[Rfam]
RNA: Small nucleolar RNA Z105
RNA sequence: CGAGCAUAAUGAUGAUUCAAAAUAUUAUCCGAAAAUUCAUGAAAGGAAUACCAACCUCCUACUCAUUCUGA
Dot-bracket structure: .....((.(..................(((..........)....))...............).)).....
Numbered sequence: 001c002g003a004g005c006a007u008a009a010u011g012a013u014g015a016u017u018c019a020a021a022a023u024a025u026u027a028u029c030c031g032a033a034a035a036u037u038c039a040u041g042a043a044a045g046g047a048a049u050a051c052c053a054a055c056c057u058c059c060u061a062c063u064c065a066u067u068c069u070g071a
Stems, first nucleotide, its partner, number of pairs: 006066002009063001028047002030041001